Rfam assigns this 86-nucleotide sequence from Pelodiscus sinensis to the family "Epstein-Barr virus stable intronic sequence RNA 2".
RNA sequence: AGCCGGGGAGGCGGAGGGGUCCCGCGCCUCUGAGGCUUUGCUCUGGCAAUGCCUCAGAGGCGCGGGACCCCUCCGCCUCCCCGGCU
Numbered sequence: 001a002g003c004c005g006g007g008g009a010g011g012c013g014g015a016g017g018g019g020u021c022c023c024g025c026g027c028c029u030c031u032g033a034g035g036c037u038u039u040g041c042u043c044u045g046g047c048a049a050u051g052c053c054u055c056a057g058a059g060g061c062g063c064g065g066g067a068c069c070c071c072u073c074c075g076c077c078u079c080c081c082c083g084g085c086u
Stems, first nucleotide, its partner, number of pairs: 001086009011076002016071021
Rfam classes the family as a non-coding RNA gene. The literature on the family includes a 2014 paper in RNA Biol by Moss et al., "RNA families in Epstein-Barr virus". Rfam 15.1 lists 171 matches to the family in 47 species. A search with the family's covariance model found it, with a score of 43 bits.